Background: mir-2450 microRNA precursor family: a 73-nucleotide RNA sequence from Bos indicus x Bos taurus. The source organism's lineage runs through Eukaryota, Opisthokonta, Eumetazoa, Chordata and Bos. The base pairs follow the family's consensus structure, which was predicted with RNAalifold.
RNA sequence: AGAGGUGCGUGUGCCUUUUCUGCACACUCGGUAUAGACGCGUGCAAACGGUCAGUAGAGGCACGUGUGCCUUU
Numbered sequence: 001a002g003a004g005g006u007g008c009g010u011g012u013g014c015c016u017u018u019u020c021u022g023c024a025c026a027c028u029c030g031g032u033a034u035a036g037a038c039g040c041g042u043g044c045a046a047a048c049g050g051u052c053a054g055u056a057g058a059g060g061c062a063c064g065u066g067u068g069c070c071u072u073u
Stems, first nucleotide, its partner, number of pairs: 002072017020054003025049001030044001031042002